[Rfam]
RNA sequence: GUGGGGGCUUCGGCCCACACACUCCUCACACCCCCGGCCCGGGGUCACCGGGCUUU
Numbered sequence: 001g002u003g004g005g006g007g008c009u010u011c012g013g014c015c016c017a018c019a020c021a022c023u024c025c026u027c028a029c030a031c032c033c034c035c036g037g038c039c040c041g042g043g044g045u046c047a048c049c050g051g052g053c054u055u056u
Base pairs, nucleotide, nucleotide: 001020002019003018005016006015007014008013036054037053038052039051040050041049042048

Background
Shown here is a 56-nucleotide RNA sequence from Synechococcus sp. RSCCF101, a member of the family "Cyanobacterial functional RNA 1". It scores 60 bits against the family's covariance model. A reference for the family is Voss et al. (2007), "A motif-based search in bacterial genomes identifies the ortholog of the small RNA Yfr1 in all lineages of cyanobacteria", BMC Genomics. By type it is a small RNA.